[Rfam]
RNA sequence: CCUUAAAUUUCUAAAGCAGCAAAUAAUGAUUCGCAUCUUGAUCAGAGCAUGCAAAUCAUGAUGUGCUGCUAGAGUACUUUAAGG
Numbered sequence: 001c002c003u004u005a006a007a008u009u010u011c012u013a014a015a016g017c018a019g020c021a022a023a024u025a026a027u028g029a030u031u032c033g034c035a036u037c038u039u040g041a042u043c044a045g046a047g048c049a050u051g052c053a054a055a056u057c058a059u060g061a062u063g064u065g066c067u068g069c070u071a072g073a074g075u076a077c078u079u080u081a082a083g084g
Base pairs, nucleotide, nucleotide: 001084002083003082004081005080006079015070016069017068018067019066020065021064023062024061026059027058028057029056030055031054033052034051035050036049
A member of the RNA family "mir-15 microRNA precursor family" from Chordeiles acutipennis, 84 nucleotides long. It scores 57 bits against the family's covariance model. On this family, see Lagos-Quintana et al., Science 2001: "Identification of novel genes coding for small expressed RNAs". Pairs were carried over by alignment from the consensus structure, which was predicted with RNAalifold. This family represents the related mir-15a and mir-15b sequences. In humans miR-15a and miR-16 are clustered within 0.5 kb at 13q14. This region has been shown to be deleted in more than half of B cell chronic lymphocytic leukaemias (CLL). Both miR-15a and miR-16 are deleted or down-regulated in more than two thirds of CLL cases. The mature sequence is excised from the 5' arm of the hairpin.